[Rfam]
Pestivirus 3' UTR SLIV and SLII bovine viral diarrhea virus (BVDV-1): a 130-nucleotide sequence from Orthopestivirus bovis.
Taxonomically the source falls in Bovine viral diarrhea virus isolates and strains (Viruses, Riboviria, Amarillovirales, Pestiviridae).
The family's RNA type in Rfam is small RNA.
For this family Rfam cites "African swine fever virus - variants on the rise" (Forth et al., Emerg Microbes Infect, 2023).
Its Rfam clan is "Pestivirus 3'UTR without 3'UTR-SL1".
RNA sequence: AUCAGGAUUUGUAUAUAUGCUGUACAUAAAACAACAUAUGUAUAUAUUGUAUAAAGAUAUAGAUUAGAUUAGUAGUGAUACAUAGUUAUCUACCUCAAACUAACACUAUUUUUAAUGCACACAGCACUUU
Numbered sequence: 001a002u003c004a005g006g007a008u009u010u011g012u013a014u015a016u017a018u019g020c021u022g023u024a025c026a027u028a029a030a031a032c033a034a035c036a037u038a039u040g041u042a043u044a045u046a047u048u049g050u051a052u053a054a055a056g057a058u059a060u061a062g063a064u065u066a067g068a069u070u071a072g073u074a075g076u077g078a079u080a081c082a083u084a085g086u087u088a089u090c091u092a093c094c095u096c097a098a099a100c101u102a103a104c105a106c107u108a109u110u111u112u113u114a115a116u117g118c119a120c121a122c123a124g125c126a127c128u129u130u
Stems, first nucleotide, its partner, number of pairs: 003049002010044007062116001064114001066112002070108004075104002086102001091098001